[Rfam]
RNA sequence: CCGUGGGGCGGCCGCUUCACGGGAACUGACACCGGUACCUGAUACGGCCGGUGCAG
Numbered sequence: 001c002c003g004u005g006g007g008g009c010g011g012c013c014g015c016u017u018c019a020c021g022g023g024a025a026c027u028g029a030c031a032c033c034g035g036u037a038c039c040u041g042a043u044a045c046g047g048c049c050g051g052u053g054c055a056g
Base pairs, nucleotide, nucleotide: 001022002021003020004019005018006017007016008015009014026056027055028054030053031052032051033050034049035048036047

The record is a 56-nucleotide RNA sequence from Streptomyces odonnellii, which matches "L17-Actino-Proteobacteria ribosomal protein leader" in Rfam. By type it is a cis-regulatory leader. On this family, see Eckert and Weinberg, BMC Microbiol 2020: "Discovery of 20 novel ribosomal leader candidates in bacteria and archaea".